[Rfam]
RNA sequence: UGCCAUACUCAUCAAAGGGGUAGUUUCCCAUCGAGAAGCUACUUUACUAUGUUUUGAAAAC
Numbered sequence: 001u002g003c004c005a006u007a008c009u010c011a012u013c014a015a016a017g018g019g020g021u022a023g024u025u026u027c028c029c030a031u032c033g034a035g036a037a038g039c040u041a042c043u044u045u046a047c048u049a050u051g052u053u054u055u056g057a058a059a060a061c
Stems, first nucleotide, its partner, number of pairs: 017045011
Notes:
Plastid-psbN 5UTR RNA: a 61-nucleotide RNA from Papaver somniferum. By type it is a cis-regulatory element. About the family: Plastid psbN is a non-coding RNA (ncRNA) recognised in plastids. It was reported as a conserved 11 stem-loop in the prime untranslated region (5UTR) of psbN genes. It has been reported that the motif is retained in a subset of mature transcripts in barley, which can suggests a possible role in transcript alternative 5 prime processing. Pairs were carried over by alignment from the consensus structure, which was predicted with LocARNA.